Rfam assigns this 101-nucleotide RNA from Heyndrickxia sporothermodurans to the family "Purine riboswitch aptamer". Taxonomically the source falls in Heyndrickxia (Bacteria, Bacillota, Bacilli, Caryophanales).
RNA sequence: GUCGAAGAUAAAUACAACUCUCAUAUAUAAUGGGAAUAUGGCCCAUACGUUUCUACCCAAUUACCGUAAAUGAUUGGACUAUGAGAGAAAGUGGAUUUUGG
Numbered sequence: 001g002u003c004g005a006a007g008a009u010a011a012a013u014a015c016a017a018c019u020c021u022c023a024u025a026u027a028u029a030a031u032g033g034g035a036a037u038a039u040g041g042c043c044c045a046u047a048c049g050u051u052u053c054u055a056c057c058c059a060a061u062u063a064c065c066g067u068a069a070a071u072g073a074u075u076g077g078a079c080u081a082u083g084a085g086a087g088a089a090a091g092u093g094g095a096u097u098u099u100g101g
Stems, first nucleotide, its partner, number of pairs: 018087008030046005057077007
Background: Riboswitches are metabolite binding domains within certain messenger RNAs that serve as precision sensors for their corresponding targets. The family's consensus secondary structure is taken from published work.